[Rfam]
RNA sequence: GUACUGGACUAGUGUGCUACAAUGUAGCUCAGCUCUAAUGGCUCGUUUCAUGGUUUGAGCUUGAAAGUACCAUGAAACGAGCCAUUAGAGCUGAGCUACAUUGUAGCACACUAGUCCAGUAC
Numbered sequence: 001g002u003a004c005u006g007g008a009c010u011a012g013u014g015u016g017c018u019a020c021a022a023u024g025u026a027g028c029u030c031a032g033c034u035c036u037a038a039u040g041g042c043u044c045g046u047u048u049c050a051u052g053g054u055u056u057g058a059g060c061u062u063g064a065a066a067g068u069a070c071c072a073u074g075a076a077a078c079g080a081g082c083c084a085u086u087a088g089a090g091c092u093g094a095g096c097u098a099c100a101u102u103g104u105a106g107c108a109c110a111c112u113a114g115u116c117c118a119g120u121a122c
Stems, first nucleotide, its partner, number of pairs: 001122028030093002033090015

Shown here is a 122-nucleotide RNA from Geotrypetes seraphini, a member of the family "mir-2513 microRNA precursor family". Its family is annotated with RISC complex and miRNA-mediated post-transcriptional gene silencing in the Gene Ontology. Pairs were carried over by alignment from the consensus structure, which was predicted with RNAalifold. Rfam 15.1 lists 40 matches to the family in 11 species. NCBI's taxonomy places the organism under Eukaryota, Metazoa, Chordata, Gnathostomata, Geotrypetes.